[Rfam]
RNA sequence: UCCAUCGCGAGAUGGAAUCUGAAGGAAGCCGUAGGCAAAGUUCCGGCCCGAGGAACACGAACAUCAUACAAGGCAUAUCCGAUCUGGAUGAGUUUGCUAAACAAAACGAAGUCCAAAAGCUAUACGGAAAUCGGAGUGUAAAUGAUGCGGGUAUAUGGAAUGAAAGUGCUUUAU
Numbered sequence: 001u002c003c004a005u006c007g008c009g010a011g012a013u014g015g016a017a018u019c020u021g022a023a024g025g026a027a028g029c030c031g032u033a034g035g036c037a038a039a040g041u042u043c044c045g046g047c048c049c050g051a052g053g054a055a056c057a058c059g060a061a062c063a064u065c066a067u068a069c070a071a072g073g074c075a076u077a078u079c080c081g082a083u084c085u086g087g088a089u090g091a092g093u094u095u096g097c098u099a100a101a102c103a104a105a106a107c108g109a110a111g112u113c114c115a116a117a118a119g120c121u122a123u124a125c126g127g128a129a130a131u132c133g134g135a136g137u138g139u140a141a142a143u144g145a146u147g148c149g150g151g152u153a154u155a156u157g158g159a160a161u162g163a164a165a166g167u168g169c170u171u172u173a174u
Stems, first nucleotide, its partner, number of pairs: 001016006028174001031171001035167002040161006046152005062147006073139003078134002081131001083129001086114004092107004

The record is a 174-nucleotide RNA from Salinimicrobium marinum, which matches "Group II catalytic intron D1-D4-3" in Rfam.
Rfam 15.1 lists 4,274 matches to the family in 1,585 species.
The source organism's lineage runs through Bacteria, Pseudomonadati, Flavobacteriia, Flavobacteriales and Salinimicrobium.
The base pairs follow the family's consensus structure.
It scores 151 bits against the family's covariance model.